[Rfam]
RNA sequence: UUCAUCAAAUGAUGAAACGAGGAAUAAUCUUAGGACACCUUCCUACACAGCAAAGCCAAGCUGUGGAUGAGAACAAAAUUUCCUUUCUGAUGAUGAU
Dot-bracket structure: .((((((...................................((....))........................................)))))).
Numbered sequence: 001u002u003c004a005u006c007a008a009a010u011g012a013u014g015a016a017a018c019g020a021g022g023a024a025u026a027a028u029c030u031u032a033g034g035a036c037a038c039c040u041u042c043c044u045a046c047a048c049a050g051c052a053a054a055g056c057c058a059a060g061c062u063g064u065g066g067a068u069g070a071g072a073a074c075a076a077a078a079u080u081u082c083c084u085u086u087c088u089g090a091u092g093a094u095g096a097u
Stems, first nucleotide, its partner, number of pairs: 002096006043050002

Rfam assigns this 97-nucleotide RNA sequence from Cucumis melo to the family "Small nucleolar RNA snoR31/Z110/Z27".
Rfam describes the family as follows. This family contains several related snoRNAs including R31, Z27 and Z110.
The match comes from Rfam's covariance-model search (52 bits).
Taxonomically the source falls in Cucumis (Eukaryota, Euphyllophyta, eudicotyledons, Gunneridae).
For this family Rfam cites "Identification of 66 box C/D snoRNAs in Arabidopsis thaliana: extensive gene duplications generated multiple isoforms predicting new ribosomal RNA 2'-O-methylation sites" (Barneche et al., J Mol Biol, 2001).